This 62-nucleotide RNA sequence from Thioalkalivibrio denitrificans belongs to the Rfam family "Fluoride riboswitch aptamer (crcB RNA motif)".
The base pairs follow the family's consensus structure, which is taken from published work.
A search with the family's covariance model found it, with a score of 50 bits.
RNA sequence: ACAGAGCCGGGAGAUGGCAUCCCUCCCAAACCGCCCUCGCGGCUGAUGAUGCCUACACUGCU
Numbered sequence: 001a002c003a004g005a006g007c008c009g010g011g012a013g014a015u016g017g018c019a020u021c022c023c024u025c026c027c028a029a030a031c032c033g034c035c036c037u038c039g040c041g042g043c044u045g046a047u048g049a050u051g052c053c054u055a056c057a058c059u060g061c062u
Base pairs, nucleotide, nucleotide: 010026011025012024013023016053017052018051019050020049021048033043034042035041
Dot-bracket structure: .........[[[[..((((((.]]]]......(((.....)))....)))))).........